[Rfam]
RNA sequence: GGUUUACAUUGGUGCAACUCCAAUCAAUCAGCUGAAUUUAAGAUAAUAAGCAAUUCUCCGGUGGUAGCAAACGGUUAUCCAUUAAGCGGACGAAAGCUUAUU
Dot-bracket structure: ........((((.......)))).................................((((..((((((.....))))))..).....)))............
The record is a 102-nucleotide sequence from Utricularia reniformis, which matches "Plastid-rps12 3UTR RNA" in Rfam. On this family, see Richter et al., Plant Commun 2023: "Retrograde signaling in plants: A critical review focusing on the GUN pathway and beyond". Rfam's curators put it in the seed alignment. By type it is a cis-regulatory element. About the family: Plastid rpl20 is a non-coding RNA (ncRNA) recognised in plastids. It was found in the three prime untranslated region (3UTR) of rps12 gene, its 3UTR location sugest a role in transcript maduration.